[Rfam]
RNA sequence: GCCUCGAUAGUAUAACGGCUAGUACGAAGGUCUCAUAUCGGUCAUAAAUAUGACCAAGCAUGGCUUGGGUAAUCCUUAGAUGGGAGUUCGAUUCUCCCUCGAGGCA
Numbered sequence: 001g002c003c004u005c006g007a008u009a010g011u012a013u014a015a016c017g018g019c020u021a022g023u024a025c026g027a028a029g030g031u032c033u034c035a036u037a038u039c040g041g042u043c044a045u046a047a048a049u050a051u052g053a054c055c056a057a058g059c060a061u062g063g064c065u066u067g068g069g070u071a072a073u074c075c076u077u078a079g080a081u082g083g084g085a086g087u088u089c090g091a092u093u094c095u096c097c098c099u100c101g102a103g104g105c106a
Base pairs, nucleotide, nucleotide: 001105002104003103004102005101006100007099010025011024012023013022027077028076029075030074082098083097084096085095086094
RNA: tRNA